[Rfam]
RNA sequence: GCGGUAGAGGUUUUUAGCUACCCUCUUUAAAAAACUAAGGAGAA
Numbered sequence: 001g002c003g004g005u006a007g008a009g010g011u012u013u014u015u016a017g018c019u020a021c022c023c024u025c026u027u028u029a030a031a032a033a034a035c036u037a038a039g040g041a042g043a044a
Stems, first nucleotide, its partner, number of pairs: 006026005015037002

Shown here is a 44-nucleotide sequence from Litchfieldia salsa, a member of the family "PreQ1 (pre queuosine) riboswitch aptamer". Rfam 15.1 lists 873 matches to the family in 692 species. Taxonomically the source falls in Litchfieldia (Bacteria, Bacillati, Caryophanales, Bacillaceae). Rfam links the family to the GO term queuosine biosynthetic process. A search with the family's covariance model found it, with a score of 40 bits. About the family: This family is a bacterial riboswitch that binds to the metabolite preQ1, an intermediate in the biosynthesis of the modified nucleoside queuosine from GTP. One example of this riboswitch is located in the leader of the Bacillus subtilis ykvJKLM (queCDEF) operon which encodes four genes necessary for queuosine production. PreQ1 binding to the riboswitch aptamer is thought to induce premature transcription termination within the leader to down-regulate expression of these genes.